[Rfam]
RNA sequence: AAUGGGGAUAGAGGCGCAAAACGAAUGAGUAAGGUAUCUGAGCAUAUAAUGGAUUGCGAAGAAGAUAUCUGAAAGGUCAAUUUGCCGAAGUGGGAUAAAGGACCAACCUUUUCUUGCUGGGCUGCUGCUGAAUAGGCUGCAGACUGUCACUGUUAGAUGGAUAUCUUUCAGUGGUGAGCUAAUCCAACU
Numbered sequence: 001a002a003u004g005g006g007g008a009u010a011g012a013g014g015c016g017c018a019a020a021a022c023g024a025a026u027g028a029g030u031a032a033g034g035u036a037u038c039u040g041a042g043c044a045u046a047u048a049a050u051g052g053a054u055u056g057c058g059a060a061g062a063a064g065a066u067a068u069c070u071g072a073a074a075g076g077u078c079a080a081u082u083u084g085c086c087g088a089a090g091u092g093g094g095a096u097a098a099a100g101g102a103c104c105a106a107c108c109u110u111u112u113c114u115u116g117c118u119g120g121g122c123u124g125c126u127g128c129u130g131a132a133u134a135g136g137c138u139g140c141a142g143a144c145u146g147u148c149a150c151u152g153u154u155a156g157a158u159g160g161a162u163a164u165c166u167u168u169c170a171g172u173g174g175u176g177a178g179c180u181a182a183u184c185c186a187a188c189u
Base pairs, nucleotide, nucleotide: 006184007183009181010180011179016085017084018083019082020081023078024077032070033069034068035067036066037065038064039063089118090117091116092115093114094113095112097110098109100107119145120144122142123141124140125139127137128136129135147174148173149172150171151170152169
About this RNA: A member of the RNA family "Lysine riboswitch aptamer" from Guptibacillus hwajinpoensis, 189 nucleotides long. Its family is annotated with lysine biosynthetic process in the Gene Ontology. From the family's description: Riboswitches are metabolite binding domains within certain messenger RNAs that serve as precision sensors for their corresponding targets.